Description:
Rfam assigns this 78-nucleotide RNA from Jaculus jaculus to the family "mir-3473 microRNA precursor family". Pairs were carried over by alignment from the consensus structure, which was predicted with RNAalifold. Taxonomically the source falls in Jaculus (Eukaryota, Eumetazoa, Dipnotetrapodomorpha, Mammalia).

RNA sequence: ACCGCUAAGCCAUCUCUCCAGCCCAUAUUUUGUUAUUUUUUAAAAAAUAUUUUUGGGCUGGAGAGAUGGCUUAGCAGC
Numbered sequence: 001a002c003c004g005c006u007a008a009g010c011c012a013u014c015u016c017u018c019c020a021g022c023c024c025a026u027a028u029u030u031u032g033u034u035a036u037u038u039u040u041u042a043a044a045a046a047a048u049a050u051u052u053u054u055g056g057g058c059u060g061g062a063g064a065g066a067u068g069g070c071u072u073a074g075c076a077g078c
Base pairs, nucleotide, nucleotide: 002077004075005074006073007072008071009070010069011068012067013066014065015064016063017062018061019060020059021058022057023056024055